[Rfam]
RNA: Small nucleolar RNA SNORA65
Organism: Clarias magur
RNA sequence: CCCGCCACUAUGCUAGUCUGUAUAAGUGACUGGGUAUAAUCCAGUGGAGGCUGAGAGAAACCCAGCUCUAGGAAGCAGGGCUGCUCUACUGGAUGGGCAACUCUGUGCCGAAAGAUCUGGAACAUCU
Dot-bracket structure: ....(((((........(.(((....)).).)..........)))))..............((((.(.(.((...(((((...(((........)))...)))))..))..).)..)))).......
Numbered sequence: 001c002c003c004g005c006c007a008c009u010a011u012g013c014u015a016g017u018c019u020g021u022a023u024a025a026g027u028g029a030c031u032g033g034g035u036a037u038a039a040u041c042c043a044g045u046g047g048a049g050g051c052u053g054a055g056a057g058a059a060a061c062c063c064a065g066c067u068c069u070a071g072g073a074a075g076c077a078g079g080g081c082u083g084c085u086c087u088a089c090u091g092g093a094u095g096g097g098c099a100a101c102u103c104u105g106u107g108c109c110g111a112a113a114g115a116u117c118u119g120g121a122a123c124a125u126c127u
Stems, first nucleotide, its partner, number of pairs: 005047005018032001020030001021028002062120004067114001069112001071109002076105005084097003